Source information: This 60-nucleotide RNA sequence from Gottschalkia acidurici belongs to the Rfam family "Fluoride riboswitch aptamer (crcB RNA motif)". Lineage of the source: Bacteria > Bacillati > Bacillota > Gottschalkiaceae > Gottschalkia acidurici.

RNA sequence: AAAACUCACGGCGAUGGAGUUCGCCAUUAAAUGCGUAAAGCUGAUGACUCCUACAAAGUA
Numbered sequence: 001a002a003a004a005c006u007c008a009c010g011g012c013g014a015u016g017g018a019g020u021u022c023g024c025c026a027u028u029a030a031a032u033g034c035g036u037a038a039a040g041c042u043g044a045u046g047a048c049u050c051c052u053a054c055a056a057a058g059u060a
Stems, first nucleotide, its partner, number of pairs: 010025004016051006033041002
A search with the family's covariance model found it, with a score of 56 bits.